[Rfam]
Rfam assigns this 154-nucleotide RNA from Sporanaerobacter acetigenes to the family "glmS glucosamine-6-phosphate activated ribozyme aptamer". Pairs were carried over by alignment from the consensus structure, which is taken from published work. This entry contains a glucosamine-6-phosphate activated ribozyme that is found in the mRNA for GlmS. GlmS is an enzyme that uses fructose-6-phosphate and glutamine to generate glucosamine-6-phosphate. Rfam classes the family as a riboswitch.
RNA sequence: AUAUAAUCUAAAGCGCCCGAACUUAAGAAAAACUUAAGUUGACGAGGACAGGGUCUAUCGAAGUCUUCGGCGGAUGCCCUGGGGUAUGCCACUAUCCAUAUGGUUUUACAAAACCUAUGAGUGAUUGUAGGGACAAAAAAGACCAAGUGGUAAU
Numbered sequence: 001a002u003a004u005a006a007u008c009u010a011a012a013g014c015g016c017c018c019g020a021a022c023u024u025a026a027g028a029a030a031a032a033c034u035u036a037a038g039u040u041g042a043c044g045a046g047g048a049c050a051g052g053g054u055c056u057a058u059c060g061a062a063g064u065c066u067u068c069g070g071c072g073g074a075u076g077c078c079c080u081g082g083g084g085u086a087u088g089c090c091a092c093u094a095u096c097c098a099u100a101u102g103g104u105u106u107u108a109c110a111a112a113a114c115c116u117a118u119g120a121g122u123g124a125u126u127g128u129a130g131g132g133a134c135a136a137a138a139a140a141g142a143c144c145a146a147g148u149g150g151u152a153a154u
Base pairs, nucleotide, nucleotide: 020040021039022038023037024036025035026034027033049081050080051079052078053077058070059069060068061067082097083096084095085094086093102144103143104142105141106140107139114131115130116129117128118127119126120125